Shown here is a 77-nucleotide sequence from Succiniclasticum ruminis, a member of the family "ZMP/ZTP riboswitch aptamer (pfl RNA motif)". The base pairs follow the family's consensus structure, which is taken from published work. Taxonomically the source falls in Succiniclasticum ruminis (Bacteria, Bacillati, Acidaminococcaceae, Succiniclasticum). It scores 56 bits against the family's covariance model.

[Rfam]
RNA sequence: GAAAGGUCAUGUGACUGACGGAAGUGGAUUCACCACAUGGAGCAUGACUGUGAAUGCCGACCGUCUGGGCGAAAGCA
Number, nucleotide and partner (000 for none) at each position: 001g000002a000003a051004a000005g049006g048007u047008c046009a045010u044011g043012u042013g000014a000015c039016u000017g065018a064019c063020g062021g061022a000023a000024g036025u035026g034027g033028a000029u000030u000031c000032a000033c027034c026035a025036c024037a000038u000039g015040g000041a000042g012043c011044a010045u009046g008047a007048c006049u005050g000051u003052g000053a000054a000055u071056g070057c069058c068059g000060a000061c021062c020063g019064u018065c017066u000067g000068g058069g057070c056071g055072a000073a000074a000075g000076c000077a000